Shown here is a 58-nucleotide RNA from Pristionchus pacificus, a member of the family "mir-8229 microRNA precursor family". It scores 45 bits against the family's covariance model. The base pairs follow the family's consensus structure, which was predicted with RNAalifold.
RNA sequence: CAUUGUCUUCACGAUGCUGGCGCGCUAUUGAAAGCGUUAACAUCGUGUUAAGCUAAGG
Numbered sequence: 001c002a003u004u005g006u007c008u009u010c011a012c013g014a015u016g017c018u019g020g021c022g023c024g025c026u027a028u029u030g031a032a033a034g035c036g037u038u039a040a041c042a043u044c045g046u047g048u049u050a051a052g053c054u055a056a057g058g
Base pairs, nucleotide, nucleotide: 001057003055005053006052008050010047011046012045013044014043015042016041018039019038020037021036022035023034